[Rfam]
RNA sequence: GAGCAUCUGGUGGAUGCCUUGGCGCUGAGAGGCGAUGAAGGACGUGGUACGCUGCGAUAAGCCUUGGGGAGCUGCGAACGAGCUUUGAUCCAGGGAUCUCCGAAUGGGGAAACCCACCUUCGACCUUCCGUAUGGCAGCGGCUUUUGUCGACGGGAUGCACACGCAUCCAGCCUGGGUUCACGCCCGGGUGUCGAGAAAAGCUUCUUCCAUACGGUUGGUCAGAUGAAGGUAUCAGGCCCUGAAUACAUAGGGGUUUGAAGCGAACCCGGGGAACUGAAACAUCUCAGUACCCGGAGGAAAGGACAUCAACGAGACUCCGUCAGUAGUGGCGAGCGAACGCGGAUCAGGCCAGCGCCUGUUGGAAAAGUACCGGAACGGUCUGGAAAGGCCGGCAAUAUGGGUGACAGCCCCGUACGGGACGCUUGACCAUCAGGACACGAGUAGGGCGGGACACGUGAAAUCCUGUCUGAACAUGGGGGGACCACCCUCCAAGCCUAAGUACUCCUCAGCGACCGAUAGCGAACCAGUACCGUGAGGGAAAGGUGAAAAGCACCCCGACGAGGGGAGUGAAAUAGUACCUGAAACCGGAUGCUUACAAA
Numbered sequence: 001g002a003g004c005a006u007c008u009g010g011u012g013g014a015u016g017c018c019u020u021g022g023c024g025c026u027g028a029g030a031g032g033c034g035a036u037g038a039a040g041g042a043c044g045u046g047g048u049a050c051g052c053u054g055c056g057a058u059a060a061g062c063c064u065u066g067g068g069g070a071g072c073u074g075c076g077a078a079c080g081a082g083c084u085u086u087g088a089u090c091c092a093g094g095g096a097u098c099u100c101c102g103a104a105u106g107g108g109g110a111a112a113c114c115c116a117c118c119u120u121c122g123a124c125c126u127u128c129c130g131u132a133u134g135g136c137a138g139c140g141g142c143u144u145u146u147g148u149c150g151a152c153g154g155g156a157u158g159c160a161c162a163c164g165c166a167u168c169c170a171g172c173c174u175g176g177g178u179u180c181a182c183g184c185c186c187g188g189g190u191g192u193c194g195a196g197a198a199a200a201g202c203u204u205c206u207u208c209c210a211u212a213c214g215g216u217u218g219g220u221c222a223g224a225u226g227a228a229g230g231u232a233u234c235a236g237g238c239c240c241u242g243a244a245u246a247c248a249u250a251g252g253g254g255u256u257u258g259a260a261g262c263g264a265a266c267c268c269g270g271g272g273a274a275c276u277g278a279a280a281c282a283u284c285u286c287a288g289u290a291c292c293c294g295g296a297g298g299a300a301a302g303g304a305c306a307u308c309a310a311c312g313a314g315a316c317u318c319c320g321u322c323a324g325u326a327g328u329g330g331c332g333a334g335c336g337a338a339c340g341c342g343g344a345u346c347a348g349g350c351c352a353g354c355g356c357c358u359g360u361u362g363g364a365a366a367a368g369u370a371c372c373g374g375a376a377c378g379g380u381c382u383g384g385a386a387a388g389g390c391c392g393g394c395a396a397u398a399u400g401g402g403u404g405a406c407a408g409c410c411c412c413g414u415a416c417g418g419g420a421c422g423c424u425u426g427a428c429c430a431u432c433a434g435g436a437c438a439c440g441a442g443u444a445g446g447g448c449g450g451g452a453c454a455c456g457u458g459a460a461a462u463c464c465u466g467u468c469u470g471a472a473c474a475u476g477g478g479g480g481g482a483c484c485a486c487c488c489u490c491c492a493a494g495c496c497u498a499a500g501u502a503c504u505c506c507u508c509a510g511c512g513a514c515c516g517a518u519a520g521c522g523a524a525c526c527a528g529u530a531c532c533g534u535g536a537g538g539g540a541a542a543g544g545u546g547a548a549a550a551g552c553a554c555c556c557c558g559a560c561g562a563g564g565g566g567a568g569u570g571a572a573a574u575a576g577u578a579c580c581u582g583a584a585a586c587c588g589g590a591u592g593c594u595u596a597c598a599a600a
Stems, first nucleotide, its partner, number of pairs: 001595010016580001017544002021515002023512007030504002032262002040101003043056003062095007071083003106115003116231007233259009266297001267295005277284002307313002316500001317344005327335002347497004355437001357434003361430003366425004371418003377392005395399001400412003445469008476491005531538002554566004
Shown here is a 600-nucleotide part of an RNA from Methylobacterium radiodurans, a member of the family "Bacterial large subunit ribosomal RNA". The source organism's lineage runs through Bacteria, Pseudomonadati, Alphaproteobacteria, Hyphomicrobiales and Methylobacterium.